[Rfam]
RNA: Alphaproteobacterial ar14
RNA sequence: GAGUUUCAGACGGCCCGUUCCUCCUCCCGAAGGGACGUCUGUUGAACAGCGGCACUCCUCCUCCCCGCUGUUCGGUUCUUUUAGGAAAGCCUGCCGCACCUCCUCCCGCGGCAGGCUUUCCUA
Numbered sequence: 001g002a003g004u005u006u007c008a009g010a011c012g013g014c015c016c017g018u019u020c021c022u023c024c025u026c027c028c029g030a031a032g033g034g035a036c037g038u039c040u041g042u043u044g045a046a047c048a049g050c051g052g053c054a055c056u057c058c059u060c061c062u063c064c065c066c067g068c069u070g071u072u073c074g075g076u077u078c079u080u081u082u083a084g085g086a087a088a089g090c091c092u093g094c095c096g097c098a099c100c101u102c103c104u105c106c107c108g109c110g111g112c113a114g115g116c117u118u119u120c121c122u123a
Stems, first nucleotide, its partner, number of pairs: 007041006014034003044078004048072006087118011
Dot-bracket structure: ......((((((.(((...............))).))))))..((((((((((.............))))))..))))........(((((((((((..........))))))))))).....